[Rfam]
Nucleotides: 072
Base pairs, nucleotide, nucleotide: 001072002071003070004069
Number, partner (000 for none) and nucleotide at each position: 001072g002071u003070u004069c005000c006000g007000u008000g009000a010000u011000g012000a013000g014000c015000g016000u017000a018000a019000a020000a021000u022000a023000g024000a025000c026000a027000a028000g029000c030000a031000u032000a033000u034000g035000u036000c037000u038000g039000a040000u041000u042000g043000u044000g045000g046000g047000u048000g049000a050000u051000g052000u053000u054000a055000a056000u057000u058000u059000a060000a061000c062000c063000g064000c065000c066000u067000g068000a069004g070003a071002a072001c